[Rfam]
RNA: permuted transfer-messenger RNA
Organism: Allostella humosa
RNA sequence: GGCGAUAAAUGGUGCGCGGAAUAAGCGUUACGGACCCGGGGGCAGUGCCCGGCGCCUCCACCAUUCCUUCCGGGGCCUUGCGGCCCCGACCGAUGGGGGCGAACCAGGAUCGACGUGCGUAGUAAAGGCGAUGCUUUUGCCCGGCAUGAUACCGCCGUUAUCGGGUCACAUCCUAAGUGCGAAUGACAACAAGGUCGCACUCGCUGCCUAA
Numbered sequence: 001g002g003c004g005a006u007a008a009a010u011g012g013u014g015c016g017c018g019g020a021a022u023a024a025g026c027g028u029u030a031c032g033g034a035c036c037c038g039g040g041g042g043c044a045g046u047g048c049c050c051g052g053c054g055c056c057u058c059c060a061c062c063a064u065u066c067c068u069u070c071c072g073g074g075g076c077c078u079u080g081c082g083g084c085c086c087c088g089a090c091c092g093a094u095g096g097g098g099g100c101g102a103a104c105c106a107g108g109a110u111c112g113a114c115g116u117g118c119g120u121a122g123u124a125a126a127g128g129c130g131a132u133g134c135u136u137u138u139g140c141c142c143g144g145c146a147u148g149a150u151a152c153c154g155c156c157g158u159u160a161u162c163g164g165g166u167c168a169c170a171u172c173c174u175a176a177g178u179g180c181g182a183a184u185g186a187c188a189a190c191a192a193g194g195u196c197g198c199a200c201u202c203g204c205u206g207c208c209u210a211a
Base pairs, nucleotide, nucleotide: 001141002140003139004138005137015130016129017128026119027118028117030116031115032114036052037051038050039049040048053101054100055099056098057097058096059095142157143156144155145154